[Rfam]
RNA sequence: AAUCAACACCGCGGGAGCUCGCACCAAGAGCGGGCUGAGAGGGCGGCUGGAGAACUCCGGGGCCGCCGACCGCAUGAACCUGACCGGGUAAUGCCGGCGUAGGGAGUGGAUGGCAGUGGCCG
Numbered sequence: 001a002a003u004c005a006a007c008a009c010c011g012c013g014g015g016a017g018c019u020c021g022c023a024c025c026a027a028g029a030g031c032g033g034g035c036u037g038a039g040a041g042g043g044c045g046g047c048u049g050g051a052g053a054a055c056u057c058c059g060g061g062g063c064c065g066c067c068g069a070c071c072g073c074a075u076g077a078a079c080c081u082g083a084c085c086g087g088g089u090a091a092u093g094c095c096g097g098c099g100u101a102g103g104g105a106g107u108g109g110a111u112g113g114c115a116g117u118g119g120c121c122g
Base pairs, nucleotide, nucleotide: 007109010106011073012072013071014070017035018034019033020032021031042067043066044065045064046063047062048061079103080102081101082100084097085096086095087094
The family of this 122-nucleotide RNA from Saccharopolyspora elongata is "TPP riboswitch aptamer (THI element)". The match comes from Rfam's covariance-model search (56 bits). The family has 115 seed sequences and 16,130 matches in Rfam 15.1.